The record is a 117-nucleotide sequence from Streptomyces vietnamensis, which matches "SAM (S-adenosyl methionine) riboswitch aptamer" in Rfam. For this family Rfam cites "The aptamer core of SAM-IV riboswitches mimics the ligand-binding site of SAM-I riboswitches" (Weinberg et al., RNA, 2008).
RNA sequence: GGUCAUGAGUGACAGCUGCAAGGCCCCGGCCGGCUGUCCGGCAACCCUCCGUCCGUGGCGGGGUGCCCCGGGUGAAGACCAGGCCGCACGAGCAGAAGCCUGCGGCAAGCGCGGACC
Numbered sequence: 001g002g003u004c005a006u007g008a009g010u011g012a013c014a015g016c017u018g019c020a021a022g023g024c025c026c027c028g029g030c031c032g033g034c035u036g037u038c039c040g041g042c043a044a045c046c047c048u049c050c051g052u053c054c055g056u057g058g059c060g061g062g063g064u065g066c067c068c069c070g071g072g073u074g075a076a077g078a079c080c081a082g083g084c085c086g087c088a089c090g091a092g093c094a095g096a097a098g099c100c101u102g103c104g105g106c107a108a109g110c111g112c113g114g115a116c117c
Stems, first nucleotide, its partner, number of pairs: 001080004009039001011038006022031002040067003045063003049058002083106006090099001

Rfam describes the family as follows. SAM-IV is a mRNA element that regulates gene expression via direct sensing of S-adenosylmethionine (SAM or AdoMet). SAM-IV riboswitches share conserved nucleotide positions with the previously described SAM-I riboswitches sequence analysis and molecular recognition experiments suggest that SAM-I and SAM-IV riboswitches share similar ligand binding sites, but have different scaffolds. The organism belongs to Streptomyces, within Bacteria.